[Rfam]
RNA sequence: AUAUCAGAGUAGCCGAAUCUUCUAAAAGAAGUACCGGGGAUUUAAUUUUGGGGUGAAACUUAAUUCACAAAGUGGGGUACCUCUACCCUAACCCGUCAACUAACCUGGAAGGCAUUAGGAGGAAUAAUG
Number, nucleotide and partner (000 for none) at each position: 001a000002u000003a000004u000005c000006a000007g000008a000009g000010u000011a000012g113013c112014c111015g000016a000017a000018u000019c031020u030021u000022c000023u000024a000025a000026a000027a000028g000029a000030a020031g019032u000033a000034c108035c107036g106037g105038g104039g000040a000041u000042u000043u050044a049045a000046u000047u000048u000049u044050g043051g094052g093053g092054u000055g000056a000057a000058a000059c072060u071061u070062a000063a000064u000065u000066c000067a000068c000069a000070a061071a060072g059073u000074g000075g088076g087077g086078u085079a000080c000081c000082u000083c000084u000085a078086c077087c076088c075089u000090a000091a000092c053093c052094c051095g000096u000097c000098a000099a000100c000101u000102a000103a000104c038105c037106u036107g035108g034109a000110a000111g014112g013113c012114a000115u000116u000117a000118g000119g000120a000121g000122g000123a000124a000125u000126a000127a000128u000129g000
RNA: c-di-AMP riboswitch aptamer (ydaO/yuaA leader)